[Rfam]
RNA: Small nucleolar RNA U109
RNA sequence: UUACCUGAUGAAAUCUCUGUUCUACUAUUUAUAAAAGAACUUGAAUAUAUUCAUAGCAUGCCACAUAAAAUGAGUGAGAAGUUUUUUAGGGUUGCUAACUUUUUGGUUAAAGUUAUGUGGAAGCAUAUUUCUUUAUGUAU
Numbered sequence: 001u002u003a004c005c006u007g008a009u010g011a012a013a014u015c016u017c018u019g020u021u022c023u024a025c026u027a028u029u030u031a032u033a034a035a036a037g038a039a040c041u042u043g044a045a046u047a048u049a050u051u052c053a054u055a056g057c058a059u060g061c062c063a064c065a066u067a068a069a070a071u072g073a074g075u076g077a078g079a080a081g082u083u084u085u086u087u088a089g090g091g092u093u094g095c096u097a098a099c100u101u102u103u104u105g106g107u108u109a110a111a112g113u114u115a116u117g118u119g120g121a122a123g124c125a126u127a128u129u130u131c132u133u134u135a136u137g138u139a140u
Stems, first nucleotide, its partner, number of pairs: 004060001006058002016043001019040005079133003092120001095117001096115007